[Rfam]
RNA sequence: CUGACCGUGACGCACGGGUGGACGUUUCCAAGAGAAACGAGCCUGUUCCCUGGAAUACCCGGGGAUGCGUCAAUGUCAG
Numbered sequence: 001c002u003g004a005c006c007g008u009g010a011c012g013c014a015c016g017g018g019u020g021g022a023c024g025u026u027u028c029c030a031a032g033a034g035a036a037a038c039g040a041g042c043c044u045g046u047u048c049c050c051u052g053g054a055a056u057a058c059c060c061g062g063g064g065a066u067g068c069g070u071c072a073a074u075g076u077c078a079g
Stems, first nucleotide, its partner, number of pairs: 001079005008072006015045004023039005047065007